A member of the RNA family "Eukaryotic large subunit ribosomal RNA" from Anolis carolinensis, 424 nucleotides of a longer RNA. Pairs were carried over by alignment from the consensus structure, which is taken from published work.

RNA sequence: GAGGCGUCGUUGCGCUAGUAAUCCUGCUCAGUACGAGAGGAACCGCAGGUUCAGACAUUUGGUGUAUGUGCUUGGCUGAGGAGCCAAUGGGGCGAAGCUACCAUCUGUGGGAUUAUGACUGAACGCCUCUAAGUCAGAAUCCCCCCUAAAGGGAACGAUACCGCAGCGCCGAGGAGCCUCGGUGGGCCCGGAUAGCCGGGCCGGCCCUCCCGGGGGCCGGCCCCGGUGCGGAGAGCCGUCCGUCUCGGGAGCGGAGCGCGGCCGGAAGGGGGCCGCCUCUCGCCCGUAGCGCAACGCACGUUCGCGGGGAACCCGGCGCUAAAUCAUUCGUAGACGACCUGAUUCUGGGUCGGGGUUUCGUACGUAGCAGAGCAGCUCCCUCGCUGCGAUCUAUUGAAAGUCAGCCCUCGACACAAGCUUUUGU
Numbered sequence: 001g002a003g004g005c006g007u008c009g010u011u012g013c014g015c016u017a018g019u020a021a022u023c024c025u026g027c028u029c030a031g032u033a034c035g036a037g038a039g040g041a042a043c044c045g046c047a048g049g050u051u052c053a054g055a056c057a058u059u060u061g062g063u064g065u066a067u068g069u070g071c072u073u074g075g076c077u078g079a080g081g082a083g084c085c086a087a088u089g090g091g092g093c094g095a096a097g098c099u100a101c102c103a104u105c106u107g108u109g110g111g112a113u114u115a116u117g118a119c120u121g122a123a124c125g126c127c128u129c130u131a132a133g134u135c136a137g138a139a140u141c142c143c144c145c146c147u148a149a150a151g152g153g154a155a156c157g158a159u160a161c162c163g164c165a166g167c168g169c170c171g172a173g174g175a176g177c178c179u180c181g182g183u184g185g186g187c188c189c190g191g192a193u194a195g196c197c198g199g200g201c202c203g204g205c206c207c208u209c210c211c212g213g214g215g216g217c218c219g220g221c222c223c224c225g226g227u228g229c230g231g232a233g234a235g236c237c238g239u240c241c242g243u244c245u246c247g248g249g250a251g252c253g254g255a256g257c258g259c260g261g262c263c264g265g266a267a268g269g270g271g272g273c274c275g276c277c278u279c280u281c282g283c284c285c286g287u288a289g290c291g292c293a294a295c296g297c298a299c300g301u302u303c304g305c306g307g308g309g310a311a312c313c314c315g316g317c318g319c320u321a322a323a324u325c326a327u328u329c330g331u332a333g334a335c336g337a338c339c340u341g342a343u344u345c346u347g348g349g350u351c352g353g354g355g356u357u358u359c360g361u362a363c364g365u366a367g368c369a370g371a372g373c374a375g376c377u378c379c380c381u382c383g384c385u386g387c388g389a390u391c392u393a394u395u396g397a398a399a400g401u402c403a404g405c406c407c408u409c410g411a412c413a414c415a416a417g418c419u420u421u422u423g424u
Base pairs, nucleotide, nucleotide: 006159007158008157009156010155011154013152016148017147018146021051023049024048025047026046027045052107053106054105055104060100061099062098067094068093069092071090072087073086074085075084076083077082109143110142111141116136117135118134119133120132168317169316170315171314173312321422322421323420327341330338347414349412350411351410352409353407354406355405357400358399364394365393366392367391369390372387373386374385375384376383